[Rfam]
RNA sequence: GGCAGGCAAGCGCCGGAAUUUCCCCGAGUUGCCGGUAGGCAGCAGCAUCCUUCGCGAUGUGGAUCAGGGGCCCGGGGGCCUGCCACAAU
Numbered sequence: 001g002g003c004a005g006g007c008a009a010g011c012g013c014c015g016g017a018a019u020u021u022c023c024c025c026g027a028g029u030u031g032c033c034g035g036u037a038g039g040c041a042g043c044a045g046c047a048u049c050c051u052u053c054g055c056g057a058u059g060u061g062g063a064u065c066a067g068g069g070g071c072c073c074g075g076g077g078g079c080c081u082g083c084c085a086c087a088a089u
Stems, first nucleotide, its partner, number of pairs: 001084007011076001013075004022070004028043006046059004

About this RNA
This 89-nucleotide sequence belongs to the Rfam family "DUF3800-VII RNA". The family's consensus secondary structure is taken from published work.